This 98-nucleotide sequence from Fervidibacillus halotolerans belongs to the Rfam family "SAM riboswitch aptamer (S box leader)".
RNA sequence: UUCUUAUCCAGAGAGGUGGAGGGACUGGCCCUUUGAAGCCUCGGCAACAGCUUUAUAGCAUUGUGCCAAUUCCAGUAGCAUUUGCUUGAAGAUAAGAA
Numbered sequence: 001u002u003c004u005u006a007u008c009c010a011g012a013g014a015g016g017u018g019g020a021g022g023g024a025c026u027g028g029c030c031c032u033u034u035g036a037a038g039c040c041u042c043g044g045c046a047a048c049a050g051c052u053u054u055a056u057a058g059c060a061u062u063g064u065g066c067c068a069a070u071u072c073c074a075g076u077a078g079c080a081u082u083u084g085c086u087u088g089a090a091g092a093u094a095a096g097a098a
Stems, first nucleotide, its partner, number of pairs: 001098008013042005021031003025075004043067004048063002050059003071090001077086003

It scores 90 bits against the family's covariance model.